A member of the RNA family "SmY spliceosomal RNA" from Caenorhabditis bovis, 79 nucleotides long. The family's RNA type in Rfam is spliceosomal small nuclear RNA. Rfam 15.1 lists 408 matches to the family in 67 species. The organism belongs to Caenorhabditis, within Eukaryota. On this family, see Maroney et al., RNA 1996: "Direct analysis of nematode cis- and trans-spliceosomes: a functional role for U5 snRNA in spliced leader addition trans-splicing and the identification of novel Sm snRNPs".
RNA sequence: AGGUGUAUAAUGCAAGAUCGCGGGCCUUCCAUAAGACCCCGUAGCCAAUUUUUGGGAUCCCUAGCAUUUGUUAGGGAUA
Number, nucleotide and partner (000 for none) at each position: 001a000002g000003g000004u000005g000006u000007a000008u000009a000010a000011u000012g000013c000014a000015a000016g000017a000018u000019c000020g000021c000022g039023g038024g037025c000026c035027u034028u033029c000030c000031a000032u000033a028034a027035g026036a000037c024038c023039c022040c000041g000042u000043a000044g000045c000046c000047a000048a000049u000050u000051u000052u000053u000054g000055g000056g000057a078058u077059c076060c075061c074062u073063a072064g071065c070066a000067u000068u000069u000070g065071u064072u063073a062074g061075g060076g059077a058078u057079a000